A member of the RNA family "c-di-GMP-I riboswitch aptamer" from Lacrimispora algidixylanolytica, 87 nucleotides long. The match comes from Rfam's covariance-model search (63 bits).

[Rfam]
RNA sequence: UAGUUCCAAAGGCAAACCCAUUGAAAGGCGUGGGCGCAAAGCUGAGGAUCUAAGGCGCUUAUGCGCUAUGAUAGUCUGUUUACCAAA
Numbered sequence: 001u002a003g004u005u006c007c008a009a010a011g012g013c014a015a016a017c018c019c020a021u022u023g024a025a026a027g028g029c030g031u032g033g034g035c036g037c038a039a040a041g042c043u044g045a046g047g048a049u050c051u052a053a054g055g056c057g058c059u060u061a062u063g064c065g066c067u068a069u070g071a072u073a074g075u076c077u078g079u080u081u082a083c084c085a086a087a
Stems, first nucleotide, its partner, number of pairs: 012037002017032001019030001021028002040081002043078001045077003048072003055066004
GEMM was predicted in a large-scale screen for bacterial structured RNA regulatory elements. The base pairs follow the family's consensus structure, which is taken from published work. Clan: c-di-GMP_I riboswitch clan.